[Rfam]
c-di-AMP riboswitch aptamer (ydaO/yuaA leader): a 143-nucleotide RNA sequence from Aeromicrobium sp. PE09-221. The organism belongs to Aeromicrobium, within Bacteria.
RNA sequence: GCGAUGGCACCGCCGAAUCGCCCUCGGGCGGACCGGGGAACCAAUCAGUGUGGGGUGAAUCCUCGCCGGACAUGUCCGACGAGGUAGGGCAGCCUUGAGCCCGAAUCCGUCAGCUCACCCGGUAGGCGUCGAGGUAUCGAGCA
Dot-bracket structure: ..........((((...(((........)))((((((....((.......))(((.....((((................))))..((((........))))...))).........)))))).))))...............